[Rfam]
RNA: SAM riboswitch aptamer (S box leader)
RNA sequence: CUCUUAUUCAGAACAAUGGAGCUUAAGGAGCGAUGAUAUUGUGGCAACCCCGAUGAACGGAAGGUGCCUGCCGGAGCGAGUACACUCGAACAAUAAGAG
Number, nucleotide and partner (000 for none) at each position: 001c099002u098003c097004u096005u095006a094007u093008u092009c000010a000011g000012a000013a042014c041015a040016a039017u038018g000019g000020a000021g031022c030023u029024u000025a000026a000027g000028g000029a023030g022031c021032g000033a000034u000035g000036a000037u000038a017039u016040u015041g014042u013043g068044g067045c066046a065047a000048c064049c063050c060051c059052g058053a000054u000055g000056a000057a000058c052059g051060g050061a000062a000063g049064g048065u046066g045067c044068c043069u000070g000071c000072c000073g000074g000075a000076g000077c088078g087079a086080g085081u000082a000083c000084a000085c080086u079087c078088g077089a000090a000091c000092a008093a007094u006095a005096a004097g003098a002099g001